[Rfam]
This 153-nucleotide RNA from Nakamurella leprariae belongs to the Rfam family "SAM riboswitch aptamer (S box leader)".
The SAM riboswitch is found upstream of a number of genes which code for proteins involved in methionine or cysteine biosynthesis in Gram-positive bacteria.
The match comes from Rfam's covariance-model search (65 bits).
NCBI's taxonomy places the organism under Bacteria, Bacillati, Actinomycetes, Nakamurellales, Nakamurella.
RNA sequence: ACCUCAUCCAGAGGGGCAGAGGGACACGGCCCGAUGAAGCCCCGGCAACCACUGAUGAUGUUCCGACCAGCGGCCCACGGGUCCGCGCGGCGGGGCCGAUCAUCGGCAGGUGCCACUUCCGUCCCGGAGCAGGCGCCCCGGGGAAGAUGAGCC
Numbered sequence: 001a002c003c004u005c006a007u008c009c010a011g012a013g014g015g016g017c018a019g020a021g022g023g024a025c026a027c028g029g030c031c032c033g034a035u036g037a038a039g040c041c042c043c044g045g046c047a048a049c050c051a052c053u054g055a056u057g058a059u060g061u062u063c064c065g066a067c068c069a070g071c072g073g074c075c076c077a078c079g080g081g082u083c084c085g086c087g088c089g090g091c092g093g094g095g096c097c098g099a100u101c102a103u104c105g106g107c108a109g110g111u112g113c114c115a116c117u118u119c120c121g122u123c124c125c126g127g128a129g130c131a132g133g134c135g136c137c138c139c140g141g142g143g144a145a146g147a148u149g150a151g152c153c
Base pairs, nucleotide, nucleotide: 003151004150005149006148007147008146013043014042015041016040017039021032022031023030026122027121028120029119044114045113046112047111049110050109052106053105054104055103056102057101058100059099118145123142124141125140126139127138